[Rfam]
RNA sequence: CACGUCACGCCGCUGAAUUCCCGUCUGCCGCGCGGGAAGCGGGGGACCCACGACAUCGGGGCGAAUCGCGCGAGGUGCGCGUAGCGCCGCUCUUUCGGCGCGAGCCCGUCAGCUAACCCCGUAAGCCCGAGAAAGAGGAUCG
Numbered sequence: 001c002a003c004g005u006c007a008c009g010c011c012g013c014u015g016a017a018u019u020c021c022c023g024u025c026u027g028c029c030g031c032g033c034g035g036g037a038a039g040c041g042g043g044g045g046a047c048c049c050a051c052g053a054c055a056u057c058g059g060g061g062c063g064a065a066u067c068g069c070g071c072g073a074g075g076u077g078c079g080c081g082u083a084g085c086g087c088c089g090c091u092c093u094u095u096c097g098g099c100g101c102g103a104g105c106c107c108g109u110c111a112g113c114u115a116a117c118c119c120c121g122u123a124a125g126c127c128c129g130a131g132a133a134a135g136a137g138g139a140u141c142g
Stems, first nucleotide, its partner, number of pairs: 012126003018038007039122006049058001059107003067081004084101004